[Rfam]
RNA sequence: GAACGAAAACGGCAAACCCGUGCGAAAGCCGGGGACGCAAAGCCACGGGUCUACACCAUCCGAAGAAGCGAUGGUACGAUAGCCGGGUUGCCAAA
Numbered sequence: 001g002a003a004c005g006a007a008a009a010c011g012g013c014a015a016a017c018c019c020g021u022g023c024g025a026a027a028g029c030c031g032g033g034g035a036c037g038c039a040a041a042g043c044c045a046c047g048g049g050u051c052u053a054c055a056c057c058a059u060c061c062g063a064a065g066a067a068g069c070g071a072u073g074g075u076a077c078g079a080u081a082g083c084c085g086g087g088u089u090g091c092c093a094a095a
Base pairs, nucleotide, nucleotide: 012038013037017033018032019031020030022029023028041089042088043087044086046085047084048083049080050079051078056074057073058072059071

The family of this 95-nucleotide sequence from Paenibacillus sedimenti is "c-di-GMP-I riboswitch aptamer". It scores 79 bits against the family's covariance model.